The family of this 200-nucleotide RNA sequence from Terasakiella brassicae is "Group I catalytic intron". The base pairs follow the family's consensus structure, which is taken from published work. The organism belongs to Terasakiella, within Bacteria. On this family, see Cech, Annu Rev Biochem 1990: "Self-splicing of group I introns". Gene Ontology term of the family: Group I intron splicing.

[Rfam]
RNA sequence: UCAGAUUCCUAAAAGAGAAAUUGGGCAUUAAGGUUGGAAACGCCUUAAUGAAUCCGCUCAAACUCAGGGAAGCCUUUAAACUGGUAAUCCUGAGCCAAGCCCGAAAACAUUCGGGAAGGUGCAGAGACUUGACGGGCGGUGCCUACGUCCUUCGGGAUAAGGCAAAGAGAAAGUCCAGACCACAAAGCCGCAAGUUCGCG
Numbered sequence: 001u002c003a004g005a006u007u008c009c010u011a012a013a014a015g016a017g018a019a020a021u022u023g024g025g026c027a028u029u030a031a032g033g034u035u036g037g038a039a040a041c042g043c044c045u046u047a048a049u050g051a052a053u054c055c056g057c058u059c060a061a062a063c064u065c066a067g068g069g070a071a072g073c074c075u076u077u078a079a080a081c082u083g084g085u086a087a088u089c090c091u092g093a094g095c096c097a098a099g100c101c102c103g104a105a106a107a108c109a110u111u112c113g114g115g116a117a118g119g120u121g122c123a124g125a126g127a128c129u130u131g132a133c134g135g136g137c138g139g140u141g142c143c144u145a146c147g148u149c150c151u152u153c154g155g156g157a158u159a160a161g162g163c164a165a166a167g168a169g170a171a172a173g174u175c176c177a178g179a180c181c182a183c184a185a186a187g188c189c190g191c192a193a194g195u196u197c198g199c200g
Base pairs, nucleotide, nucleotide: 005028006027008025009024010023011022012021032044033043034042054139055138056137057136059134064093065092066091067090068089069088073084074083094120095119100114101113124176126175127174128173129172130171142162143161144160148156149155150154183198185196186195189194